RNA sequence: UAGGCAGGUUGCAAUCAUAGUGCUUCAUUUGGGGGAAGUACUGCAUUAUCCUGGUUGGGGAAAAAAAGCUGUGCUAAUCAUUUUUGAUUUUGCUUUUAUGAGAAUAAGAUGAUGGACAGAUUGGCACAGUCAAUU
Number, nucleotide and partner (000 for none) at each position: 001u000002a000003g055004g000005c053006a052007g051008g050009u000010u000011g000012c000013a000014a000015u000016c000017a000018u043019a042020g041021u040022g039023c038024u037025u036026c035027a000028u000029u000030u000031g000032g000033g000034g000035g026036a025037a024038g023039u022040a021041c020042u019043g018044c000045a000046u000047u000048a000049u000050c008051c007052u006053g005054g000055u003056u000057g000058g000059g000060g000061a000062a000063a000064a000065a000066a000067a000068g000069c129070u128071g127072u126073g125074c124075u123076a122077a121078u120079c119080a000081u000082u000083u000084u000085u112086g000087a110088u109089u108090u107091u106092g105093c000094u103095u102096u101097u000098a000099u000100g000101a096102g095103a094104a000105u092106a091107a090108g089109a088110u087111g000112a085113u000114g000115g000116a000117c000118a000119g079120a078121u077122u076123g075124g074125c073126a072127c071128a070129g069130u000131c000132a000133a000134u000135u000
This 135-nucleotide RNA sequence from Otolemur garnettii belongs to the Rfam family "Small nucleolar RNA SNORA69". U69 is a member of the H/ACA class of small nucleolar RNAs (snoRNAs) which act as guides in the the modification of uridines to pseudouridines.